[Rfam]
RNA sequence: GAUCGCAGAGAUGACUUGGUGAAAUCCAAGCUAGCUCAACAGACCGGAACACAGGAUUUCCUCUUGCUCCUCUUGCGAGAAAAUUUUGCGGGUUGACCACCUCGCUCACCUGAACGAUC
Numbered sequence: 001g002a003u004c005g006c007a008g009a010g011a012u013g014a015c016u017u018g019g020u021g022a023a024a025u026c027c028a029a030g031c032u033a034g035c036u037c038a039a040c041a042g043a044c045c046g047g048a049a050c051a052c053a054g055g056a057u058u059u060c061c062u063c064u065u066g067c068u069c070c071u072c073u074u075g076c077g078a079g080a081a082a083a084u085u086u087u088g089c090g091g092g093u094u095g096a097c098c099a100c101c102u103c104g105c106u107c108a109c110c111u112g113a114a115c116g117a118u119c
Stems, first nucleotide, its partner, number of pairs: 001119005
Small nucleolar RNA Z107/R87: a 119-nucleotide RNA from Carpinus fangiana. The family's consensus secondary structure was predicted with RNAfold. The family has 9 seed sequences and 783 matches in Rfam 15.1. The family's RNA type in Rfam is C/D-box small nucleolar RNA. Gene Ontology terms of the family: RNA processing and nucleolus.